RNA: MIR2118 microRNA precursor family
Organism: Triticum aestivum
RNA sequence: GUCAGUAAGAGGAAGAAUAGAGGAACUUAGAGUAGUGGGAAUGGGAACAUGGAGGAAAGCCUAACAUUCUCGGUUUUCACCUCCAGUGUUGGAGGUGAUAAUUUAAUUUGGUGUUUCCUGAUGCCUCCCAUUCCUAUUGUUCUAAAGAACUCUUCACCUUGAUUUUUUUG
Dot-bracket structure: .........(((..(((..(((....((((((((.(((((((((((.(((.(.((.((((....................................................))))))).)))..))))))))))).))))))))....))))))..)))..........
Numbered sequence: 001g002u003c004a005g006u007a008a009g010a011g012g013a014a015g016a017a018u019a020g021a022g023g024a025a026c027u028u029a030g031a032g033u034a035g036u037g038g039g040a041a042u043g044g045g046a047a048c049a050u051g052g053a054g055g056a057a058a059g060c061c062u063a064a065c066a067u068u069c070u071c072g073g074u075u076u077u078c079a080c081c082u083c084c085a086g087u088g089u090u091g092g093a094g095g096u097g098a099u100a101a102u103u104u105a106a107u108u109u110g111g112u113g114u115u116u117c118c119u120g121a122u123g124c125c126u127c128c129c130a131u132u133c134c135u136a137u138u139g140u141u142c143u144a145a146a147g148a149a150c151u152c153u154u155c156a157c158c159u160u161g162a163u164u165u166u167u168u169u170g
Stems, first nucleotide, its partner, number of pairs: 010160003015155003020152003027145008036136011048123003052119001054118002057116004